[Rfam]
This 93-nucleotide RNA from Leersia perrieri belongs to the Rfam family "small nucleolar RNA snoR126". The match comes from Rfam's covariance-model search (70 bits).

RNA sequence: UGGCUGUGAUGAAACAAACUUCGUUUCUCGAUGCUGAGACUUGAUUUGUUCAAGGACCAAAAUCAUGCUGACCGUUGUGCGUGUCUGAGCCAC
Numbered sequence: 001u002g003g004c005u006g007u008g009a010u011g012a013a014a015c016a017a018a019c020u021u022c023g024u025u026u027c028u029c030g031a032u033g034c035u036g037a038g039a040c041u042u043g044a045u046u047u048g049u050u051c052a053a054g055g056a057c058c059a060a061a062a063u064c065a066u067g068c069u070g071a072c073c074g075u076u077g078u079g080c081g082u083g084u085c086u087g088a089g090c091c092a093c
Stems, first nucleotide, its partner, number of pairs: 001092004
The family's RNA type in Rfam is C/D-box small nucleolar RNA.